The family of this 238-nucleotide sequence from Musa troglodytarum is "MIR159 microRNA precursor family". Rfam 15.1 lists 3,649 matches to the family in 242 species. Taxonomically the source falls in Musa (Eukaryota, Streptophytina, Embryophyta, Liliopsida). For this family Rfam cites "Computational identification of plant microRNAs and their targets, including a stress-induced miRNA" (Jones-Rhoades and Bartel, Mol Cell, 2004).
RNA sequence: AUGUGUUUGAGAGAGCUUCCUUCGGUCCACCCAUGGAUGUUUAAGGGAUUUGAAUCAGCUGCCGACUCAUUCAUUCAAACACACAGUAGAUAUGAAGUGUGCUCGGUUCUCUACGGUUCGCGCGGCAGAUGAAAGCUUUUGGAUUAUGGCUACUAUGUGAAUGAGUGAAUGAUGCGGGAGACUAUUCUUUCUCUUCCAUUCCAUGCUUGGACUGAAGGGAGCUCCCUCUUCCUCUUCU
Numbered sequence: 001a002u003g004u005g006u007u008u009g010a011g012a013g014a015g016c017u018u019c020c021u022u023c024g025g026u027c028c029a030c031c032c033a034u035g036g037a038u039g040u041u042u043a044a045g046g047g048a049u050u051u052g053a054a055u056c057a058g059c060u061g062c063c064g065a066c067u068c069a070u071u072c073a074u075u076c077a078a079a080c081a082c083a084c085a086g087u088a089g090a091u092a093u094g095a096a097g098u099g100u101g102c103u104c105g106g107u108u109c110u111c112u113a114c115g116g117u118u119c120g121c122g123c124g125g126c127a128g129a130u131g132a133a134a135g136c137u138u139u140u141g142g143a144u145u146a147u148g149g150c151u152a153c154u155a156u157g158u159g160a161a162u163g164a165g166u167g168a169a170u171g172a173u174g175c176g177g178g179a180g181a182c183u184a185u186u187c188u189u190u191c192u193c194u195u196c197c198a199u200u201c202c203a204u205g206c207u208u209g210g211a212c213u214g215a216a217g218g219g220a221g222c223u224c225c226c227u228c229u230u231c232c233u234c235u236u237c238u
Base pairs, nucleotide, nucleotide: 013224014223015222016221017220018219019218020217023214024213025212026211027210028209029208036201059180060179062177063176064175068171069170070169071168076163
A search with the family's covariance model found it, with a score of 137 bits.
The family's consensus secondary structure was predicted with WAR.